[Rfam]
RNA: 7SK RNA
Organism: Bucco capensis
Nucleotides: 307
Base pairs, nucleotide, nucleotide: 001108002107003106005102006101007100008099009098010097011096014092018090019089024087025086026085027084028083029082030081031080032079033078035074036073037070038069039068043066044065045064047061048060116172117171119168120167121166122139123138124137125136127135128134140162142160147158148157202271208265209264211263212262213261214260215259223254224253225252226251229249230248231247232246233245
Number, partner (000 for none) and nucleotide at each position: 001108g002107g003106a004000u005102g006101u007100g008099a009098g010097g011096g012000c013000a014092a015000u016000c017000u018090g019089g020000c021000u022000g023000c024087g025086a026085c027084a028083u029082c030081u031080g032079u033078c034000a035074c036073c037070c038069c039068a040000c041000u042000g043066a044065u045064c046000a047061c048060c049000a050000g051000g052000g053000u054000c055000g056000a057000u058000u059000u060048g061047g062000c063000u064045g065044a066043u067000g068039u069038g070037g071000c072000u073036g074035g075000c076000u077000a078033g079032g080031c081030a082029g083028g084027u085026g086025u087024c088000c089019c090018c091000c092014u093000c094000c095000u096011c097010c098009c099008u100007c101006g102005c103000c104000g105000c106003u107002c108001c109000a110000u111000g112000u113000g114000c115000g116172u117171u118000c119168c120167u121166c122139c123138u124137g125136a126000a127135g128134c129000u130000a131000u132000g133000u134128g135127c136125u137124c138123a139122g140162u141000c142160a143000a144000a145000g146000a147158g148157g149000a150000c151000a152000a153000c154000c155000u156000c157148u158147c159000u160142u161000c162140a163000u164000u165000a166121g167120a168119g169000a170000g171117a172116g173000u174000a175000u176000u177000g178000u179000u180000c181000a182000u183000c184000a185000g186000u187000c188000a189000a190000g191000g192000g193000u194000a195000u196000a197000c198000a199000g200000u201000a202271g203000c204000u205000g206000c207000a208265c209264u210000g211263c212262c213261u214260u215259g216000c217000u218000a219000g220000a221000a222000c223254c224253u225252c226251c227000a228000a229249a230248c231247a232246a233245g234000c235000u236000c237000a238000a239000g240000g241000u242000c243000c244000a245233u246232u247231u248230g249229u250000a251226g252225g253224a254223g255000a256000a257000c258000a259215c260214a261213g262212g263211g264209g265208g266000u267000u268000u269000u270000u271202u272000g273000u274000g275000u276000u277000c278000u279000u280000u281000u282000g283000u284000c285000a286000a287000c288000c289000a290000a291000a292000c293000a294000u295000g296000a297000a298000c299000c300000a301000g302000c303000a304000g305000u306000g307000u